[Rfam]
RNA sequence: AAAGACUGCUAGGGGUGCCGAAUAGGCUGAGAUAGUUUUACUAAACCCUUUCGAACCUGAUUUGGUUUAUACCAACGUAGGAAAGUAGUCAACGUAUUCA
Numbered sequence: 001a002a003a004g005a006c007u008g009c010u011a012g013g014g015g016u017g018c019c020g021a022a023u024a025g026g027c028u029g030a031g032a033u034a035g036u037u038u039u040a041c042u043a044a045a046c047c048c049u050u051u052c053g054a055a056c057c058u059g060a061u062u063u064g065g066u067u068u069a070u071a072c073c074a075a076c077g078u079a080g081g082a083a084a085g086u087a088g089u090c091a092a093c094g095u096a097u098u099c100a
Base pairs, nucleotide, nucleotide: 006088007087008086009085010084011050012049013048014047016043017027018026019025034042035041036040056081057080058079059078062075063074064073065072
RNA: TPP riboswitch aptamer (THI element)